[Rfam]
RNA sequence: UUCUUAUCUAGAGAGGUGGAGGGACAGGCCCUGUGAAACCCGGCAACCAAUACGGCAGUAUAUGGUGCCAAUUCCUACAGCGCAAGCUGAGAGAUGAGAA
Numbered sequence: 001u002u003c004u005u006a007u008c009u010a011g012a013g014a015g016g017u018g019g020a021g022g023g024a025c026a027g028g029c030c031c032u033g034u035g036a037a038a039c040c041c042g043g044c045a046a047c048c049a050a051u052a053c054g055g056c057a058g059u060a061u062a063u064g065g066u067g068c069c070a071a072u073u074c075c076u077a078c079a080g081c082g083c084a085a086g087c088u089g090a091g092a093g094a095u096g097a098g099a100a
Base pairs, nucleotide, nucleotide: 001100002099003098004097005096006095007094008093013041015040016039017038021031022030023029026076027075028074042069043068044067045066047065048064050061051060052059053058073092078089079088080087081086
Rfam assigns this 100-nucleotide RNA sequence from Proteiniclasticum sediminis to the family "SAM riboswitch aptamer (S box leader)". Pairs were carried over by alignment from the consensus structure, which is taken from published work. A reference for the family is Grundy and Henkin (1998), "The S box regulon: a new global transcription termination control system for methionine and cysteine biosynthesis genes in gram-positive bacteria", Mol Microbiol. From the family's description: The SAM riboswitch is found upstream of a number of genes which code for proteins involved in methionine or cysteine biosynthesis in Gram-positive bacteria.